[Rfam]
RNA sequence: CCACGUCCCGACGCAAAUCCCCCCCCCGGCGCCGGGACCUUCCCGAGUCGGGCUUCGGCACCUGUCCCCCCGGGUGCCGAAGCCCGGCUCCUUC
Numbered sequence: 001c002c003a004c005g006u007c008c009c010g011a012c013g014c015a016a017a018u019c020c021c022c023c024c025c026c027c028g029g030c031g032c033c034g035g036g037a038c039c040u041u042c043c044c045g046a047g048u049c050g051g052g053c054u055u056c057g058g059c060a061c062c063u064g065u066c067c068c069c070c071c072g073g074g075u076g077c078c079g080a081a082g083c084c085c086g087g088c089u090c091c092u093u094c
Base pairs, nucleotide, nucleotide: 005038006037007036008035009034010033012031013030014029045090046089047088048087049086050085051084052083053082054081056079057078058077059076060075061074062073063072064071